[Rfam]
RNA sequence: UGUCUCCUCUACUUCCUCACAGGAAUUAGAUUCAGCCCGCUCCCGUAGCGGGCUUUUUUUU
Numbered sequence: 001u002g003u004c005u006c007c008u009c010u011a012c013u014u015c016c017u018c019a020c021a022g023g024a025a026u027u028a029g030a031u032u033c034a035g036c037c038c039g040c041u042c043c044c045g046u047a048g049c050g051g052g053c054u055u056u057u058u059u060u061u
Stems, first nucleotide, its partner, number of pairs: 008030004013025003034054008
Shown here is a 61-nucleotide RNA from Janthinobacterium sp. KBS0711, a member of the family "Betaproteobacteria toxic small RNA". Rfam's curators write: Overexpression in amino aid rich medium attenuates growth, suggesting role in repressing amino acid intake and metabolism. Pairs were carried over by alignment from the consensus structure, which was predicted with WAR. Lineage of the source: Bacteria > Pseudomonadota > Burkholderiales > Oxalobacteraceae > Janthinobacterium. The literature on the family includes a 2012 paper in Genome Res by Kimelman et al., "A vast collection of microbial genes that are toxic to bacteria".